[Rfam]
RNA: Nitrogen stress-induced RNA 1
RNA sequence: UGGUAGAUGCACCCUGAUUCAAUCCUCAGCUUCGGCUGGGGAUUUUUUGU
Dot-bracket structure: .(((......))).........((((((((....))))))))........